[Rfam]
Shown here is a 208-nucleotide RNA sequence from Paraburkholderia acidisoli, a member of the family "Burkholderia sRNA Bp1_Cand738_SIPHT". The match comes from Rfam's covariance-model search (172 bits). It is annotated as a small RNA. The source organism's lineage runs through Bacteria, Pseudomonadati, Pseudomonadota, Burkholderiales and Paraburkholderia.
RNA sequence: CGAACAGCCAGCGCGAUGGGCGCUGGCGAGGACAACCAAUCUAAACCGAACAAAGCCGUGCAGGGAGUCGGCUAAACGGCGACGCGUUGCGUCUGAAGGACCGGGAAGUGGUUAAAAAUUUCAAGCCCUGCAACCAGUGUGGACGGAUUCUAGCAGCGUUUUAUAGAUCGUCAAUACUAUAGAAUGUCAAAGUUAUAACUAUUUGUAA
Numbered sequence: 001c002g003a004a005c006a007g008c009c010a011g012c013g014c015g016a017u018g019g020g021c022g023c024u025g026g027c028g029a030g031g032a033c034a035a036c037c038a039a040u041c042u043a044a045a046c047c048g049a050a051c052a053a054a055g056c057c058g059u060g061c062a063g064g065g066a067g068u069c070g071g072c073u074a075a076a077c078g079g080c081g082a083c084g085c086g087u088u089g090c091g092u093c094u095g096a097a098g099g100a101c102c103g104g105g106a107a108g109u110g111g112u113u114a115a116a117a118a119u120u121u122c123a124a125g126c127c128c129u130g131c132a133a134c135c136a137g138u139g140u141g142g143a144c145g146g147a148u149u150c151u152a153g154c155a156g157c158g159u160u161u162u163a164u165a166g167a168u169c170g171u172c173a174a175u176a177c178u179a180u181a182g183a184a185u186g187u188c189a190a191a192g193u194u195a196u197a198a199c200u201a202u203u204u205g206u207a208a
Stems, first nucleotide, its partner, number of pairs: 008026007046111003054073005081093005138176003143171004149167004